[Rfam]
RNA: SAM riboswitch aptamer (S box leader)
Organism: Halobacteroides halobius
RNA sequence: CUCUUAUCAAGAGUGGCGGAGGGACUGGCCCAAUGAUGCCCAGCAACCAGUACUUAAUAAGUACCCGGUGCUAACUCCUGCAGUUAUUAGUAACUGAGAGAUAAGAG
Numbered sequence: 001c002u003c004u005u006a007u008c009a010a011g012a013g014u015g016g017c018g019g020a021g022g023g024a025c026u027g028g029c030c031c032a033a034u035g036a037u038g039c040c041c042a043g044c045a046a047c048c049a050g051u052a053c054u055u056a057a058u059a060a061g062u063a064c065c066c067g068g069u070g071c072u073a074a075c076u077c078c079u080g081c082a083g084u085u086a087u088u089a090g091u092a093a094c095u096g097a098g099a100g101a102u103a104a105g106a107g
Base pairs, nucleotide, nucleotide: 001107002106003105004104005103006102007101008100013041015040016039017038021031022030023029025080027078028077042072043071044070045069047068048067050064051063052062053061076099081096082095083094084093085092086091